[Rfam]
The family of this 109-nucleotide RNA sequence from Blastochloris tepida is "EcpR1". Rfam links the family to the GO terms regulation of translation in response to stress, mRNA binding and negative regulation of cell cycle. Perviously named SmelC291, SmrC10, or Sra33. A reference for the family is Robledo et al. (2015), "A stress-induced small RNA modulates alpha-rhizobial cell cycle progression", PLoS Genet. The match comes from Rfam's covariance-model search (94 bits).
Nucleotides: 109
Base pairs, nucleotide, nucleotide: 003049004048005047006046007045008044009043010042016039017038018037019036020035021034052104053103054102055101056100057099058098059097060096061095062094
Number, partner (000 for none) and nucleotide at each position: 001000u002000a003049a004048c005047c006046c007045u008044a009043c010042g011000g012000a013000a014000u015000g016039c017038u018037c019036a020035g021034g022000u023000c024000c025000g026000c027000c028000g029000c030000a031000u032000c033000u034021c035020c036019u037018g038017g039016g040000u041000c042010c043009g044008u045007g046006g047005g048004g049003u050000c051000u052104g053103g054102c055101c056100g057099g058098c059097c060096g061095g062094g063000c064000c065000g066000u067000g068000c069000g070000c071000g072000a073000g074000a075000g076000g077000c078000c079000u080000c081000c082000u083000u084000g085000c086000g087000u088000g089000c090000g091000a092000c093000a094062c095061c096060c097059g098058g099057c100056c101055g102054g103053c104052c105000u106000c107000c108000u109000u